[Rfam]
RNA sequence: AGUGGUCGUAUUGGGCCACAGCAGAAGCACUUAUGGCGCAGCCCUGUCAGAUUCCAAUAAAUCUGUGAAUUCUUCU
Numbered sequence: 001a002g003u004g005g006u007c008g009u010a011u012u013g014g015g016c017c018a019c020a021g022c023a024g025a026a027g028c029a030c031u032u033a034u035g036g037c038g039c040a041g042c043c044c045u046g047u048c049a050g051a052u053u054c055c056a057a058u059a060a061a062u063c064u065g066u067g068a069a070u071u072c073u074u075c076u
Base pairs, nucleotide, nucleotide: 013044014043015042016041020076021075023073024072025071026070027039028038048065049064050063051062052061053060
Dot-bracket structure: ............((((...[[.[[[[((.........)).))))...((((((......))))))....]]]].]]